[Rfam]
RNA sequence: CCAAGUCCCGACGCUAUCCCCCCCGGCGCCGGGACUUCCCCAGAGCCGAGCCUCCGGCGCCUCUCCCCCUGGCGCCGGGGCUCGGCUCGAUC
Numbered sequence: 001c002c003a004a005g006u007c008c009c010g011a012c013g014c015u016a017u018c019c020c021c022c023c024c025g026g027c028g029c030c031g032g033g034a035c036u037u038c039c040c041c042a043g044a045g046c047c048g049a050g051c052c053u054c055c056g057g058c059g060c061c062u063c064u065c066c067c068c069c070u071g072g073c074g075c076c077g078g079g080g081c082u083c084g085g086c087u088c089g090a091u092c
Base pairs, nucleotide, nucleotide: 005035006034007033008032009031010030012028013027014026043088044087045086046085047084048083049082050081051080052079055077056076057075058074059073060072
RNA: Streptomyces RNA 3202
Organism: Streptomyces flaveus